This 203-nucleotide RNA sequence from Paraclostridium benzoelyticum belongs to the Rfam family "Enterococcus sRNA 2410". Rfam 15.1 lists 74 matches to the family in 56 species. Taxonomically the source falls in Paraclostridium (Bacteria, Bacillati, Clostridia, Peptostreptococcaceae). Produced as 2 transcripts on Northern blot. Expressed in mid, late exponential and early stationary phases of growth. The literature on the family includes a 2017 paper in Sci Rep by Sinel et al., "Small RNAs in vancomycin-resistant Enterococcus faecium involved in daptomycin response and resistance".
RNA sequence: UUAGCUAUUAUAGUUAAGUUUGUAUUUAUGAUAUAAAUCGAAAAUCAUAGGUACAAACGGAAAAUUGUUUGUAUCUAUGAUGGCUAAAUUUAGCUUGUACUUAGGCCACAUAGAUAUACUAUGUGGCUUUUUUAAUCCUAGGCAAAAAAGGCUGCAUAGUAUCCACUAUGUGGCCUUUUUGCAUAUACUUUAUAAAUUAUUAA
Numbered sequence: 001u002u003a004g005c006u007a008u009u010a011u012a013g014u015u016a017a018g019u020u021u022g023u024a025u026u027u028a029u030g031a032u033a034u035a036a037a038u039c040g041a042a043a044a045u046c047a048u049a050g051g052u053a054c055a056a057a058c059g060g061a062a063a064a065u066u067g068u069u070u071g072u073a074u075c076u077a078u079g080a081u082g083g084c085u086a087a088a089u090u091u092a093g094c095u096u097g098u099a100c101u102u103a104g105g106c107c108a109c110a111u112a113g114a115u116a117u118a119c120u121a122u123g124u125g126g127c128u129u130u131u132u133u134a135a136u137c138c139u140a141g142g143c144a145a146a147a148a149a150g151g152c153u154g155c156a157u158a159g160u161a162u163c164c165a166c167u168a169u170g171u172g173g174c175c176u177u178u179u180u181g182c183a184u185a186u187a188c189u190u191u192a193u194a195a196a197u198u199a200u201u202a203a
Stems, first nucleotide, its partner, number of pairs: 001087007011077003015073002018058015062070003091145001093143005101134001104128006111121003146179015